[Rfam]
RNA sequence: AGAUGACCCACGGGAGAGUGCAUGAUUUGUCAUGCCGCCGAAGGCGCAACCGCCCCGGAAACGCUCAGGCCAAAGGACCGUGGAUCAUUU
Numbered sequence: 001a002g003a004u005g006a007c008c009c010a011c012g013g014g015a016g017a018g019u020g021c022a023u024g025a026u027u028u029g030u031c032a033u034g035c036c037g038c039c040g041a042a043g044g045c046g047c048a049a050c051c052g053c054c055c056c057g058g059a060a061a062c063g064c065u066c067a068g069g070c071c072a073a074a075g076g077a078c079c080g081u082g083g084a085u086c087a088u089u090u
Base pairs, nucleotide, nucleotide: 006085008083009082010081011080012079013078020035021034022033023032037070038069039068040066041065044064045063046062050058051057
RNA: Glycine riboswitch aptamer